[Rfam]
Nucleotides: 154
Base pairs, nucleotide, nucleotide: 004023005022006021007020008019032053033052034051035050036049039046055070056069057068058067087154088153089152090151091150094149095148096147097146098145099144100143103138104137106135107134108133110131112129113128114127115126116125
Number, partner (000 for none) and nucleotide at each position: 001000g002000u003000g004023c005022c006021u007020u008019a009000a010000a011000c012000u013000a014000a015000u016000g017000a018000g019008u020007a021006a022005g023004g024000a025000a026000a027000a028000u029000a030000c031000a032053g033052a034051g035050c036049c037000c038000u039046g040000g041000u042000g043000a044000c045000g046039c047000u048000u049036g050035g051034c052033u053032c054000a055070g056069c057068u058067a059000a060000c061000a062000a063000a064000c065000a066000u067058u068057a069056g070055u071000a072000u073000a074000a075000c076000c077000a078000a079000u080000u081000u082000u083000u084000g085000a086000a087154g088153g089152a090151g091150u092000u093000a094149a095148g096147g097146u098145c099144g100143u101000c102000c103138c104137u105000g106135u107134g108133g109000a110131g111000c112129c113128u114127c115126g116125c117000c118000u119000a120000c121000u122000u123000u124000a125116g126115c127114g128113a129112g130000g131110c132000a133108c134107c135106g136000a137104g138103g139000u140000g141000a142000a143100g144099c145098g146097a147096u148095c149094u150091g151090c152089u153088c154087c
Shown here is a 154-nucleotide sequence from Frankliniella occidentalis, a member of the family "U12 minor spliceosomal RNA". Rfam links the family to the GO terms U12 snRNP, mRNA branch site recognition and pre-mRNA branch point binding. By type it is a spliceosomal small nuclear RNA.